[Rfam]
RNA: Bacillus-plasmid RNA
RNA sequence: AAAGUCAACGGUAGCGGACGAGUGACAAGGUCACGACGGAGCAUAAGGAGUUGACUUUUUUAAACGU
Numbered sequence: 001a002a003a004g005u006c007a008a009c010g011g012u013a014g015c016g017g018a019c020g021a022g023u024g025a026c027a028a029g030g031u032c033a034c035g036a037c038g039g040a041g042c043a044u045a046a047g048g049a050g051u052u053g054a055c056u057u058u059u060u061u062a063a064a065c066g067u
Base pairs, nucleotide, nucleotide: 001058002057003056004055005054006053007052008051009050